[Rfam]
RNA sequence: CAGGCUUGCUGAAGCUCCGCAGCGGCGCCUGGGAUUUAUCCCGACACCGUGACCAAUUUCGGAGCUUGA
Numbered sequence: 001c002a003g004g005c006u007u008g009c010u011g012a013a014g015c016u017c018c019g020c021a022g023c024g025g026c027g028c029c030u031g032g033g034a035u036u037u038a039u040c041c042c043g044a045c046a047c048c049g050u051g052a053c054c055a056a057u058u059u060c061g062g063a064g065c066u067u068g069a
Stems, first nucleotide, its partner, number of pairs: 012067008023049003030043004

ybhL leader: a 69-nucleotide sequence from Pseudorhizobium pelagicum. Rfam links the family to the GO term regulation of gene expression. The family's RNA type in Rfam is cis-regulatory leader. The pairing is the family consensus, mapped onto this sequence. Lineage of the source: Bacteria > Pseudomonadati > Pseudomonadota > Hyphomicrobiales > Pseudorhizobium. From the family's description: This family is a putative regulatory RNA structure that is found upstream of an uncharacterized membrane protein in alpha-proteobacteria.